[Rfam]
RNA sequence: AGGCAACCUCCCUGCGGCGGCCAUGGCAGGGAAGGUGUUUAACUGCUCGGAAAUCGAUUUGCUUUUGCUCUUCAGACUUGCUGAGAUUGCUCUCUGAAGCUGGUCUAGUAAGCUCUAGUACAUC
Numbered sequence: 001a002g003g004c005a006a007c008c009u010c011c012c013u014g015c016g017g018c019g020g021c022c023a024u025g026g027c028a029g030g031g032a033a034g035g036u037g038u039u040u041a042a043c044u045g046c047u048c049g050g051a052a053a054u055c056g057a058u059u060u061g062c063u064u065u066u067g068c069u070c071u072u073c074a075g076a077c078u079u080g081c082u083g084a085g086a087u088u089g090c091u092c093u094c095u096g097a098a099g100c101u102g103g104u105c106u107a108g109u110a111a112g113c114u115c116u117a118g119u120a121c122a123u124c
Base pairs, nucleotide, nucleotide: 002039003038004037005036007035008034009032010031011030012029013028014027015026017024062118063117067113068112069111074106075105076104077103078102080100081099082098085092086091
Background
A member of the RNA family "Small nucleolar RNA snoR77" from Punica granatum, 124 nucleotides long. Gene Ontology terms of the family: nucleolus and RNA processing. The family's consensus secondary structure was predicted with WAR.